The record is a 92-nucleotide RNA sequence from Denitromonas iodatirespirans, which matches "Burkholderia RNA 7 (anti-hemB)" in Rfam. The source organism's lineage runs through Bacteria, Pseudomonadati, Pseudomonadota, Betaproteobacteria and Denitromonas. The family has 26 seed sequences and 479 matches in Rfam 15.1. The base pairs follow the family's consensus structure, which is taken from published work.
RNA sequence: UCUCCCGCUUCAACCUCCCUGAGCGGGAGCCCUGCCGUUCAGGCAGGGCGUUCAGCCCCCGGCUUUCUCCCCUUUGGCCGGGGGUUUAUUUU
Numbered sequence: 001u002c003u004c005c006c007g008c009u010u011c012a013a014c015c016u017c018c019c020u021g022a023g024c025g026g027g028a029g030c031c032c033u034g035c036c037g038u039u040c041a042g043g044c045a046g047g048g049c050g051u052u053c054a055g056c057c058c059c060c061g062g063c064u065u066u067c068u069c070c071c072c073u074u075u076g077g078c079c080g081g082g083g084g085u086u087u088a089u090u091u092u
Base pairs, nucleotide, nucleotide: 004027005026006025007024008023009022029049030048031047032046033045034044035043056084057083058082059081060080061079062078063077